Shown here is a 132-nucleotide RNA sequence from Pongo abelii, a member of the family "Small nucleolar RNA SNORA75". It is annotated as an H/ACA-box small nucleolar RNA. The family's consensus secondary structure was predicted with PFOLD. For this family Rfam cites "The family of box ACA small nucleolar RNAs is defined by an evolutionarily conserved secondary structure and ubiquitous sequence elements essential for RNA accumulation" (Ganot et al., Genes Dev, 1997).
RNA sequence: GACUUCUCACUGAGCUUCUUUCUGUCUGUUGGUGGCAGCUUAUGGAUUCAUAUGAGCAGAGAAUCACAGAACUAGCAUUACUUUUGCCUUCUGUCUUUACAGGAGUAUAUUUGGCUAUCUUGUGAAAUAUUA
Numbered sequence: 001g002a003c004u005u006c007u008c009a010c011u012g013a014g015c016u017u018c019u020u021u022c023u024g025u026c027u028g029u030u031g032g033u034g035g036c037a038g039c040u041u042a043u044g045g046a047u048u049c050a051u052a053u054g055a056g057c058a059g060a061g062a063a064u065c066a067c068a069g070a071a072c073u074a075g076c077a078u079u080a081c082u083u084u085u086g087c088c089u090u091c092u093g094u095c096u097u098u099a100c101a102g103g104a105g106u107a108u109a110u111u112u113g114g115c116u117a118u119c120u121u122g123u124g125a126a127a128u129a130u131u132a
Base pairs, nucleotide, nucleotide: 003059004058006056007055008054014051016046017045018044022038023037024036025035026034064125065124066123067122068121069120088105089104090103091102092101093100